[Rfam]
RNA sequence: ACUGGAAGCUGCUUGGACCAGUUGUGGGCAAAAGAAACGUGUUUUGUCUACUCUCGCAGUCUUCCUAGAGCAAAGUGGAGGUCUCUGACUGCUUUAGGAGAGCUAACUAAACCGGAUGGUUCCCCUCCACACAUG
Number, nucleotide and partner (000 for none) at each position: 001a000002c000003u000004g065005g064006a063007a000008g060009c059010u058011g057012c056013u000014u000015g000016g000017a000018c000019c000020a000021g000022u000023u000024g051025u050026g049027g048028g047029c046030a000031a000032a000033a000034g043035a042036a000037a000038c000039g000040u000041g000042u035043u034044u000045u000046g029047u028048c027049u026050a025051c024052u000053c000054u000055c000056g012057c011058a010059g009060u008061c000062u000063u006064c005065c004066u000067a000068g000069a000070g000071c000072a000073a000074a000075g000076u000077g128078g127079a126080g125081g124082u000083c000084u000085c119086u000087g117088a000089c115090u000091g113092c000093u111094u110095u109096a108097g107098g000099a000100g000101a000102g000103c000104u000105a000106a000107c097108u096109a095110a094111a093112c000113c091114g000115g089116a000117u087118g000119g085120u000121u000122c000123c000124c081125c080126u079127c078128c077129a000130c000131a000132c000133a000134u000135g000
The record is a 135-nucleotide RNA from Apaloderma vittatum, which matches "Small Cajal body specific RNA 3" in Rfam. Its Rfam clan is "SCARNA3 clan". Rfam classes the family as a small Cajal body RNA. The base pairs follow the family's consensus structure, which was predicted with RNAalifold. scaRNAs are a specific class of small nuclear RNAs which localise to the Cajal bodies and guide the modification of RNA polymerase II transcribed spliceosomal RNAs U1, U2, U4, U5 and U12. Its family is annotated with nucleolus, RNA processing and Cajal body in the Gene Ontology.